RNA sequence: GCCCCAUCGUUCAAGUCAGGGCGCCUUUAUGUCGAUCUUCCUUUAUGGAAGAUUGGCUUUUCUUCAAUUGAAGGUGCGCGUUACAACCUUGGGAGAUCAAGCCCUUUCCCGUCCUCAUCCCGCCAACGUUUUGUUGGCAGGUUGUUUCGAUUUCUCCCGUUUUGGGUAGAGUCACUUGGAAUCGGUGCAGGUUUCGUAUUGAGUUGAGGAUCGGAUUUUUUUCAUUUCUUGUGAAGAAGUUCCGUUUUGAUUCUCUUAGUUAUGAUUCACACAUUU
Numbered sequence: 001g002c003c004c005c006a007u008c009g010u011u012c013a014a015g016u017c018a019g020g021g022c023g024c025c026u027u028u029a030u031g032u033c034g035a036u037c038u039u040c041c042u043u044u045a046u047g048g049a050a051g052a053u054u055g056g057c058u059u060u061u062c063u064u065c066a067a068u069u070g071a072a073g074g075u076g077c078g079c080g081u082u083a084c085a086a087c088c089u090u091g092g093g094a095g096a097u098c099a100a101g102c103c104c105u106u107u108c109c110c111g112u113c114c115u116c117a118u119c120c121c122g123c124c125a126a127c128g129u130u131u132u133g134u135u136g137g138c139a140g141g142u143u144g145u146u147u148c149g150a151u152u153u154c155u156c157c158c159g160u161u162u163u164g165g166g167u168a169g170a171g172u173c174a175c176u177u178g179g180a181a182u183c184g185g186u187g188c189a190g191g192u193u194u195c196g197u198a199u200u201g202a203g204u205u206g207a208g209g210a211u212c213g214g215a216u217u218u219u220u221u222u223c224a225u226u227u228c229u230u231g232u233g234a235a236g237a238a239g240u241u242c243c244g245u246u247u248u249g250a251u252u253c254u255c256u257u258a259g260u261u262a263u264g265a266u267u268c269a270c271a272c273a274u275u276u
Base pairs, nucleotide, nucleotide: 003092004091006089019079021077022076023075024074025073026072027071028070031057032056033055034054035053036052037051038050039049040048041047105181106180107179108178117146119144122138123137124136125135126134127133149173150172151171152170156166157165158164159163185270186269187268194265195264196263197262206255207254208253209252212249213248214247215246218238219237220236221235222234223233224232
RNA: Small nucleolar RNA snR191
Organism: Choiromyces venosus